Bacterial RNase P class A: a 428-nucleotide sequence from Candidatus Nitrospira inopinata. Pairs were carried over by alignment from the consensus structure, which is taken from published work. The match comes from Rfam's covariance-model search (278 bits). It is annotated as a ribozyme. Rfam links the family to the GO terms tRNA processing, ribonuclease P activity and dimeric ribonuclease P complex. Rfam describes the family as follows. Ribonuclease P (RNase P) is a ubiquitous endoribonuclease, found in archaea, bacteria and eukarya as well as chloroplasts and mitochondria.
[Rfam]
RNA sequence: UGCGAAGGCCGGAUGAUCGCUCGAUGCGAGAGUAUCGGGAGGAAAGUCCGGACUCCAAGGGCAGGGCGCUGGGUAAUUCCCAGGCGGAGCGAUCCGACACCAGCACCACAGAAAGCAAACCGCCGAUGGCCGAGGCGACGGGGGUGUACCCGGUCGCUGCGGCUCAGGCAAGGGUGAAAGGGUGGGGUAAGAGCCCACCGCGGUGGUGGCGACAUCACCGGCAGGGUAAGCGUCGCCCGGUGCAAGGCCAAAUAGGAAGAGCCGCGCGGGACGCUCCAGGGCGUUUCGCGCACCGACCGGCCCGGUCGAGAUCUUCGGGUAGGCCGCUUGAGGUUCGAGGCAACUCGAAUCCCAGAGAAAUGAUCAUCGCCGUUCGAGUGAGCAAGCUCGAAUGGACACAGAAUCCGGCUUAUAGGCCUUCACAUUUG
Numbered sequence: 001u002g003c004g005a006a007g008g009c010c011g012g013a014u015g016a017u018c019g020c021u022c023g024a025u026g027c028g029a030g031a032g033u034a035u036c037g038g039g040a041g042g043a044a045a046g047u048c049c050g051g052a053c054u055c056c057a058a059g060g061g062c063a064g065g066g067c068g069c070u071g072g073g074u075a076a077u078u079c080c081c082a083g084g085c086g087g088a089g090c091g092a093u094c095c096g097a098c099a100c101c102a103g104c105a106c107c108a109c110a111g112a113a114a115g116c117a118a119a120c121c122g123c124c125g126a127u128g129g130c131c132g133a134g135g136c137g138a139c140g141g142g143g144g145u146g147u148a149c150c151c152g153g154u155c156g157c158u159g160c161g162g163c164u165c166a167g168g169c170a171a172g173g174g175u176g177a178a179a180g181g182g183u184g185g186g187g188u189a190a191g192a193g194c195c196c197a198c199c200g201c202g203g204u205g206g207u208g209g210c211g212a213c214a215u216c217a218c219c220g221g222c223a224g225g226g227u228a229a230g231c232g233u234c235g236c237c238c239g240g241u242g243c244a245a246g247g248c249c250a251a252a253u254a255g256g257a258a259g260a261g262c263c264g265c266g267c268g269g270g271a272c273g274c275u276c277c278a279g280g281g282c283g284u285u286u287c288g289c290g291c292a293c294c295g296a297c298c299g300g301c302c303c304g305g306u307c308g309a310g311a312u313c314u315u316c317g318g319g320u321a322g323g324c325c326g327c328u329u330g331a332g333g334u335u336c337g338a339g340g341c342a343a344c345u346c347g348a349a350u351c352c353c354a355g356a357g358a359a360a361u362g363a364u365c366a367u368c369g370c371c372g373u374u375c376g377a378g379u380g381a382g383c384a385a386g387c388u389c390g391a392a393u394g395g396a397c398a399c400a401g402a403a404u405c406c407g408g409c410u411u412a413u414a415g416g417c418c419u420u421c422a423c424a425u426u427u428g
Stems, first nucleotide, its partner, number of pairs: 001424002004421007011413001012368007020039008044411003048408005053242001055240002059303004064238005069083005084098001085096004099233002103231002105227003120173002122169003127166003131162001181199006200222001201220008246325004256316005294308005332351008